[Rfam]
The family of this 67-nucleotide RNA sequence from Chitinophaga barathri is "Fluoride riboswitch aptamer (crcB RNA motif)". Taxonomically the source falls in Chitinophaga (Bacteria, Pseudomonadati, Chitinophagia, Chitinophagales). The family's consensus secondary structure is taken from published work. Gene Ontology terms of the family: response to fluoride and positive regulation of gene expression.

RNA sequence: UCUCAAACAGGAAAUGGUGUCUUCCUGACCCAACCGCUCUGAACAAGCUGAUGGCGCCUGCAAAUUC
Numbered sequence: 001u002c003u004c005a006a007a008c009a010g011g012a013a014a015u016g017g018u019g020u021c022u023u024c025c026u027g028a029c030c031c032a033a034c035c036g037c038u039c040u041g042a043a044c045a046a047g048c049u050g051a052u053g054g055c056g057c058c059u060g061c062a063a064a065u066u067c
Stems, first nucleotide, its partner, number of pairs: 010025004016058006036048003